The family of this 105-nucleotide sequence from Peribacillus muralis is "SAM riboswitch aptamer (S box leader)". Lineage of the source: Bacteria > Bacilli > Caryophanales > Bacillaceae > Peribacillus. The match comes from Rfam's covariance-model search (86 bits).
RNA sequence: UUCUUAUCCAGAGAGGUGGAGGGACUUGGCCCUAUGAAACCUCGGCAGCAGACCCGUAUUGGGAACUGUGCUACAUCCAACAAGCGUUUGCUUGGAAGAUAAGAA
Numbered sequence: 001u002u003c004u005u006a007u008c009c010a011g012a013g014a015g016g017u018g019g020a021g022g023g024a025c026u027u028g029g030c031c032c033u034a035u036g037a038a039a040c041c042u043c044g045g046c047a048g049c050a051g052a053c054c055c056g057u058a059u060u061g062g063g064a065a066c067u068g069u070g071c072u073a074c075a076u077c078c079a080a081c082a083a084g085c086g087u088u089u090g091c092u093u094g095g096a097a098g099a100u101a102a103g104a105a
Stems, first nucleotide, its partner, number of pairs: 001105008013043005021032003026080004044072004049068002053062002076097001081094005